[Rfam]
Source information:
Rfam assigns this 116-nucleotide RNA sequence from Sphenodon punctatus to the family "U5 spliceosomal RNA". Rfam links the family to the GO terms U5 snRNP and spliceosomal tri-snRNP complex assembly. Lineage of the source: Eukaryota > Chordata > Craniata > Dipnotetrapodomorpha > Sphenodon. Pairs were carried over by alignment from the consensus structure, which is taken from published work.
RNA sequence: AUACUCUGGUUUCUCUUCAGAUCAUAUAAAUCUUUCGCCUUUUACUAAAGAUUUCCGUGAAGAGGAAUAGUUAUGAGCGUCUACCCAAUUUUUUGAGGCUCCGGUUCGGAGGAGCU
Numbered sequence: 001a002u003a004c005u006c007u008g009g010u011u012u013c014u015c016u017u018c019a020g021a022u023c024a025u026a027u028a029a030a031u032c033u034u035u036c037g038c039c040u041u042u043u044a045c046u047a048a049a050g051a052u053u054u055c056c057g058u059g060a061a062g063a064g065g066a067a068u069a070g071u072u073a074u075g076a077g078c079g080u081c082u083a084c085c086c087a088a089u090u091u092u093u094u095g096a097g098g099c100u101c102c103g104g105u106u107c108g109g110a111g112g113a114g115c116u
Stems, first nucleotide, its partner, number of pairs: 004077003009068011028054008096116001098115005